[Rfam]
RNA sequence: UGGGUAAAAUCGCCUAAUUCAAUCUAGCCAACCUAGAUUAGAAGCGGAGGAACCAGUAAUUGGGGCGAAUCUCUUUUUGGAGAAAGACACCUUCCAGUCUUAGCCCGUCAGCUAACUCCGUCGGCAUUGGGAGGAGUACCU
Dot-bracket structure: ...........(((...(((....................)))((((((....((.....))(((.....((((....))))..((((........))))...))).........)))))).)))................
Numbered sequence: 001u002g003g004g005u006a007a008a009a010u011c012g013c014c015u016a017a018u019u020c021a022a023u024c025u026a027g028c029c030a031a032c033c034u035a036g037a038u039u040a041g042a043a044g045c046g047g048a049g050g051a052a053c054c055a056g057u058a059a060u061u062g063g064g065g066c067g068a069a070u071c072u073c074u075u076u077u078u079g080g081a082g083a084a085a086g087a088c089a090c091c092u093u094c095c096a097g098u099c100u101u102a103g104c105c106c107g108u109c110a111g112c113u114a115a116c117u118c119c120g121u122c123g124g125c126a127u128u129g130g131g132a133g134g135a136g137u138a139c140c141u
Stems, first nucleotide, its partner, number of pairs: 012125003018043003044121006054062002063106003071082004085100004

The family of this 141-nucleotide RNA sequence from Tolypothrix sp. NIES-4075 is "c-di-AMP riboswitch aptamer (ydaO/yuaA leader)".
A search with the family's covariance model found it, with a score of 80 bits.
The source organism's lineage runs through Bacteria, Bacillati, Cyanobacteriota, Nostocales and Tolypothrix.
The base pairs follow the family's consensus structure.